[Rfam]
RNA sequence: AACAUGAUAGAAUGGCUUGCAAGGGCGGCUGGCUAAUCCCCUGAAAGGGGGUGAUGCCUGUGGAGACAUACCAAGCAUUGACGCUGAUGAUUUCAUUCGCGACCUUGGUUGUGUUGAUCCUCAGUUUCCAUAAAAGGAAAUAGACCGCCCUUGGGAUAAGUGCGCGGUCUAUUUCUGAUCCUCGUCUUAAGCCACCGCCCUUAAAAGCGGCUAUUGUGUCCGGAGUGCAGACGUUCCAGCGCCUGCA
Numbered sequence: 001a002a003c004a005u006g007a008u009a010g011a012a013u014g015g016c017u018u019g020c021a022a023g024g025g026c027g028g029c030u031g032g033c034u035a036a037u038c039c040c041c042u043g044a045a046a047g048g049g050g051g052u053g054a055u056g057c058c059u060g061u062g063g064a065g066a067c068a069u070a071c072c073a074a075g076c077a078u079u080g081a082c083g084c085u086g087a088u089g090a091u092u093u094c095a096u097u098c099g100c101g102a103c104c105u106u107g108g109u110u111g112u113g114u115u116g117a118u119c120c121u122c123a124g125u126u127u128c129c130a131u132a133a134a135a136g137g138a139a140a141u142a143g144a145c146c147g148c149c150c151u152u153g154g155g156a157u158a159a160g161u162g163c164g165c166g167g168u169c170u171a172u173u174u175c176u177g178a179u180c181c182u183c184g185u186c187u188u189a190a191g192c193c194a195c196c197g198c199c200c201u202u203a204a205a206a207g208c209g210g211c212u213a214u215u216g217u218g219u220c221c222g223g224a225g226u227g228c229a230g231a232c233g234u235u236c237c238a239g240c241g242c243c244u245g246c247a
Stems, first nucleotide, its partner, number of pairs: 002219004007214002010211001013194006020153006027145001029143002034054001036052001038050005062129006076089002099121001101119002166175002195210004226247005232241003

Shown here is a 247-nucleotide sequence from Paenibacillus contaminans, a member of the family "BsrG". Rfam describes the family as follows. bsrE, bsrG and bsrH pair through intermolecular interactions with antisense sRNAs. Pairs were carried over by alignment from the consensus structure, which was predicted with WAR. Its family is annotated with autolysis and toxin activity in the Gene Ontology. A reference for the family is Jahn and Brantl (2013), "One antitoxin--two functions: SR4 controls toxin mRNA decay and translation", Nucleic Acids Res.